[Rfam]
RNA sequence: CGAAGCUCUCCGCGAGGCGGCAUCCAGGCCAACUCCCCCAGGACGGAAACGUAGCAAGGGUAACCAGGCUCUGCCGGGUUCGCGGAGAGUCUUACUU
Numbered sequence: 001c002g003a004a005g006c007u008c009u010c011c012g013c014g015a016g017g018c019g020g021c022a023u024c025c026a027g028g029c030c031a032a033c034u035c036c037c038c039c040a041g042g043a044c045g046g047a048a049a050c051g052u053a054g055c056a057a058g059g060g061u062a063a064c065c066a067g068g069c070u071c072u073g074c075c076g077g078g079u080u081c082g083c084g085g086a087g088a089g090u091c092u093u094a095c096u097u
Stems, first nucleotide, its partner, number of pairs: 004093002008089001009086006018076005024068002027065002035060003043052003
Dot-bracket structure: ...((..(((((((...(((((.((.((......(((.....(((....))).....)))...)).))...)))))....))))))..)..))....